Rfam assigns this 305-nucleotide RNA sequence from Daucus carota to the family "Plant signal recognition particle RNA".
The source organism's lineage runs through Eukaryota, Magnoliopsida, Mesangiospermae, Scandiceae and Daucus carota.
[Rfam]
RNA sequence: GCUGGGUCUGGUAGCGCAGGCCUGUAACCCAAGUGGGAGCCAUAAGAUGGUUGGAGGUUGGAUUGGGCCAGAAGGUUGGGCUAGCAUGGGGUUAUACACUGGCCUGCCCAUUCCAAGUAGGGAGCAGGGUCAUGGGCUUUGGGCGAAAGCCAGGAGUUCAUUUCCCCUAAAGAGGAGGGCAUUGCGCUAGGCUGGCUUCACAGAGCAGCGAACACUUCCCUCUCCUGUCGGUGGAAGGAUAACAAGUCGGUUCUUCACUAGUCCAUCAAACACCGGAUGGGUCAUUCAACCAUACAACCAUCUUU
Number, nucleotide and partner (000 for none) at each position: 001g040002c039003u038004g023005g022006g021007u020008c019009u018010g017011g000012u000013a000014g000015c000016g000017c010018a009019g008020g007021c006022c005023u004024g000025u000026a000027a000028c037029c036030c035031a000032a000033g000034u000035g030036g029037g028038a003039g002040c001041c000042a000043u000044a304045a303046g302047a301048u300049g299050g298051u297052u296053g295054g000055a293056g000057g291058u289059u288060g287061g286062a285063u284064u000065g282066g000067g000068c280069c279070a278071g000072a000073a000074g274075g273076u272077u000078g264079g263080g262081c261082u260083a259084g258085c000086a000087u000088g000089g255090g254091g253092u000093u000094a251095u000096a000097c000098a000099c250100u249101g248102g247103c246104c000105u244106g243107c000108c238109c237110a000111u236112u235113c234114c233115a232116a000117g229118u000119a000120g226121g225122g224123a223124g222125c000126a000127g166128g165129g164130u000131c000132a161133u160134g159135g158136g157137c156138u155139u154140u153141g000142g151143g150144c149145g000146a000147a000148a000149g144150c143151c142152a000153g140154g139155a138156g137157u136158u135159c134160a133161u132162u000163u000164c129165c128166c127167c172168u000169a000170a000171a000172g167173a000174g219175g218176a217177g216178g215179g000180c000181a000182u000183u212184g000185c210186g209187c208188u000189a000190g000191g000192c203193u202194g201195g000196c000197u000198u000199c000200a000201c194202a193203g192204a000205g000206c000207a000208g187209c186210g185211a000212a183213c000214a000215c178216u177217u176218c175219c174220c000221u000222c124223u123224c122225c121226u120227g000228u000229c117230g000231g000232u115233g114234g113235a112236a111237g109238g108239a000240u000241a000242a000243c106244a105245a000246g103247u102248c101249g100250g099251u094252u000253c091254u090255u089256c000257a000258c084259u083260a082261g081262u080263c079264c078265a000266u000267c000268a000269a000270a000271c000272a076273c075274c074275g000276g000277a000278u070279g069280g068281g000282u065283c000284a063285u062286u061287c060288a059289a058290c000291c057292a000293u055294a000295c053296a052297a051298c050299c049300a048301u047302c046303u045304u044305u000
It scores 227 bits against the family's covariance model. Pairs were carried over by alignment from the consensus structure, which is taken from published work. The family's RNA type in Rfam is non-coding RNA gene.